[Rfam]
RNA: Small nucleolar RNA SNORA28
Organism: Myotis myotis
RNA sequence: GAAUAAAUCUCUUUUCUUUUUACCAAAACUGUCAGACAUAACUUGAACUUGCUAUAGCAAGAAAGUCAAACCUAUUCCAGUGCUCUCUCCUCUAUCAGACAAGCUGUUAUGUAGACUUAGUGUAA
Numbered sequence: 001g002a003a004u005a006a007a008u009c010u011c012u013u014u015u016c017u018u019u020u021u022a023c024c025a026a027a028a029c030u031g032u033c034a035g036a037c038a039u040a041a042c043u044u045g046a047a048c049u050u051g052c053u054a055u056a057g058c059a060a061g062a063a064a065g066u067c068a069a070a071c072c073u074a075u076u077c078c079a080g081u082g083c084u085c086u087c088u089c090c091u092c093u094a095u096c097a098g099a100c101a102a103g104c105u106g107u108u109a110u111g112u113a114g115a116c117u118u119a120g121u122g123u124a125a
Stems, first nucleotide, its partner, number of pairs: 010046002012040001014038001016035002020031001063118005069112001073111003078106004086099003